[Rfam]
RNA sequence: CUGGCGUCGGUGCUGGGGAGCGGCCCCCGGCGAACCUCUGCUCUGGCCCCUCCUGGGGCCCACACUCUCGCUCUGGGCCCG
Numbered sequence: 001c002u003g004g005c006g007u008c009g010g011u012g013c014u015g016g017g018g019a020g021c022g023g024c025c026c027c028c029g030g031c032g033a034a035c036c037u038c039u040g041c042u043c044u045g046g047c048c049c050c051u052c053c054u055g056g057g058g059c060c061c062a063c064a065c066u067c068u069c070g071c072u073c074u075g076g077g078c079c080c081g
Stems, first nucleotide, its partner, number of pairs: 003079003007076004012071002015068004020063001022061002025058004029053002032049001035046002
RNA: mir-1343 microRNA precursor family
Organism: Otolemur garnettii